The family of this 116-nucleotide RNA from Drosophila persimilis is "mir-2576 microRNA precursor family".

RNA sequence: CGGCGAUCGGGCCUUUCGAGUGGAGAGUGUGGGAGUUGGCGGACAUGUGAGAGUUCCACCAUGAACCUCGCCCGCCACUCUCAUCUCGUCCACCCGGUCGAUAGGUUGCGAUCGUC
Numbered sequence: 001c002g003g004c005g006a007u008c009g010g011g012c013c014u015u016u017c018g019a020g021u022g023g024a025g026a027g028u029g030u031g032g033g034a035g036u037u038g039g040c041g042g043a044c045a046u047g048u049g050a051g052a053g054u055u056c057c058a059c060c061a062u063g064a065a066c067c068u069c070g071c072c073c074g075c076c077a078c079u080c081u082c083a084u085c086u087c088g089u090c091c092a093c094c095c096g097g098u099c100g101a102u103a104g105g106u107u108g109c110g111a112u113c114g115u116c
Base pairs, nucleotide, nucleotide: 002116003115004114005113006112007111008110009109011107012105013104014103016101017100018099019098020093021092022091023090024089025087026086027085029084030083031082032081033080034079035078036077038076039075040074041073042072044070049069050068051067053066054065055064056063
Gene Ontology terms of the family: miRNA-mediated post-transcriptional gene silencing and RISC complex.